[Rfam]
Background: A member of the RNA family "Bacterial RNase P class A" from Desulfobaculum bizertense, 354 nucleotides long. Pairs were carried over by alignment from the consensus structure, which is taken from published work. The organism belongs to Desulfobaculum bizertense, within Bacteria. For this family Rfam cites "Ribonuclease P: unity and diversity in a tRNA processing ribozyme" (Frank and Pace, Annu Rev Biochem, 1998).

RNA sequence: GGAGUCAGACAGACUGUCGCCGCGGCUCAUUGAGCCGGGGAGGAAAGUCCGGGCUUCAUAGGGCAAGACGCUGGAUAACGUCCAGGUGGGGCGACCCACGGACAGGGCCACAGAAACAAACCGCCAGCCUCGGCUGGUAAGGGUGAAAAGGUGGGGUAAGAGCCUACCAGCUGUUGUGGUAACACAGCAGGCUAGGUAACCCCCGUUUGAAGCAAGACCAAAUAGGAAAGCGCUUGAGGCCGGCCCGGUCGAAGCUUUCGGGUAGGUUGCUGGAGACCACAGGUAACUAUGGUCCUAGAGGAAUGACAGUCACCCGCAAGGGGACAAAACCCGGCUUAUCGUCCGACUCCCUUU
Numbered sequence: 001g002g003a004g005u006c007a008g009a010c011a012g013a014c015u016g017u018c019g020c021c022g023c024g025g026c027u028c029a030u031u032g033a034g035c036c037g038g039g040g041a042g043g044a045a046a047g048u049c050c051g052g053g054c055u056u057c058a059u060a061g062g063g064c065a066a067g068a069c070g071c072u073g074g075a076u077a078a079c080g081u082c083c084a085g086g087u088g089g090g091g092c093g094a095c096c097c098a099c100g101g102a103c104a105g106g107g108c109c110a111c112a113g114a115a116a117c118a119a120a121c122c123g124c125c126a127g128c129c130u131c132g133g134c135u136g137g138u139a140a141g142g143g144u145g146a147a148a149a150g151g152u153g154g155g156g157u158a159a160g161a162g163c164c165u166a167c168c169a170g171c172u173g174u175u176g177u178g179g180u181a182a183c184a185c186a187g188c189a190g191g192c193u194a195g196g197u198a199a200c201c202c203c204c205g206u207u208u209g210a211a212g213c214a215a216g217a218c219c220a221a222a223u224a225g226g227a228a229a230g231c232g233c234u235u236g237a238g239g240c241c242g243g244c245c246c247g248g249u250c251g252a253a254g255c256u257u258u259c260g261g262g263u264a265g266g267u268u269g270c271u272g273g274a275g276a277c278c279a280c281a282g283g284u285a286a287c288u289a290u291g292g293u294c295c296u297a298g299a300g301g302a303a304u305g306a307c308a309g310u311c312a313c314c315c316g317c318a319a320g321g322g323g324a325c326a327a328a329a330c331c332c333g334g335c336u337u338a339u340c341g342u343c344c345g346a347c348u349c350c351c352u353u354u
Stems, first nucleotide, its partner, number of pairs: 001350006008343003011339001012311007020040002023037006045337003049334005054212004061246004066208005071085005086099005100203002105201002107197003121142002123138006150168006170192001171190008216268004226259006238250004275294005281288002